A member of the RNA family "FMN riboswitch aptamer (RFN element)" from Emergencia timonensis, 117 nucleotides long.
It scores 116 bits against the family's covariance model.
Its family is annotated with FMN binding in the Gene Ontology.
The RFN element is a highly conserved domain that is found frequently in the 5'-untranslated regions of prokaryotic mRNAs that encode for flavin mononucleotide (FMN) biosynthesis and transport proteins.
[Rfam]
RNA sequence: AAUGAUCUUCAGGGCAGGGUGAAAUUCCCGAUCGGCGGUAUAGUCCGCGAGCGCUUUGGCGCAAGAUUUGGUGAGAUUCCAAAACCGACAGUAUAGUCUGGAUGGAAGAAGAUAGAA
Numbered sequence: 001a002a003u004g005a006u007c008u009u010c011a012g013g014g015c016a017g018g019g020u021g022a023a024a025u026u027c028c029c030g031a032u033c034g035g036c037g038g039u040a041u042a043g044u045c046c047g048c049g050a051g052c053g054c055u056u057u058g059g060c061g062c063a064a065g066a067u068u069u070g071g072u073g074a075g076a077u078u079c080c081a082a083a084a085c086c087g088a089c090a091g092u093a094u095a096g097u098c099u100g101g102a103u104g105g106a107a108g109a110a111g112a113u114a115g116a117a
Stems, first nucleotide, its partner, number of pairs: 003115001005113006017029003031097002033087002035048004043085002067083005089100003